[Rfam]
RNA: Small nucleolar RNA SNORA14
RNA sequence: CUGCAUUCUUAACCCUCCUGGCAGCUCCGUUAUUAGCUUCCAGGGUAAGAAUGAAUGCCAGAGAAAACGGUGGAUUCAUCCAAAAUGUGGAGCUCUUCUGCCGUGGCUCCUCGUUAUUUCACAUCUCCAACAUGC
Number, nucleotide and partner (000 for none) at each position: 001c000002u000003g058004c057005a056006u055007u000008c000009u050010u048011a000012a000013c000014c000015c000016u045017c044018c043019u042020g041021g040022c000023a038024g037025c036026u000027c000028c000029g000030u000031u000032a000033u000034u000035a000036g025037c024038u023039u000040c021041c020042a019043g018044g017045g016046u000047a000048a010049g000050a009051a000052u000053g000054a000055a006056u005057g004058c003059c000060a000061g000062a000063g135064a000065a000066a000067a000068c000069g000070g128071u000072g126073g125074a124075u000076u000077c000078a000079u000080c000081c000082a000083a000084a115085a114086u113087g112088u000089g110090g109091a000092g107093c106094u000095c000096u000097u000098c103099u000100g000101c000102c000103g098104u000105g000106g093107c092108u000109c090110c089111u000112c087113g086114u085115u084116a000117u000118u000119u000120c000121a000122c000123a000124u074125c073126u072127c000128c070129a000130a000131c000132a000133u000134g000135c063